Description: The family of this 65-nucleotide sequence from Myotis davidii is "mir-367 microRNA precursor family". NCBI's taxonomy places the organism under Eukaryota, Eumetazoa, Amniota, Boreoeutheria, Myotis. For this family Rfam cites "The expression profile of microRNAs in mouse embryos" (Mineno et al., Nucleic Acids Res, 2006).
[Rfam]
Nucleotides: 065
Stems, first nucleotide, its partner, number of pairs: 005061012019047005025041004
Number, partner (000 for none) and nucleotide at each position: 001000c002000c003000g004000u005061c006060a007059c008058u009057g010056u011055u012054g013053c014052u015051c016050a017000c018000g019047u020046g021045c022044a023043a024000c025041u026040c027039u028038g029000u030000a031000c032000g033000c034000g035000g036000c037000c038028u039027g040026g041025a042000a043023u044022u045021g046020c047019a048000c049000u050016u051015g052014a053013g054012c055011a056010a057009u058008g059007g060006u061005g062000a063000c064000g065000g

Pairs were carried over by alignment from the consensus structure, which was predicted with RNAalifold.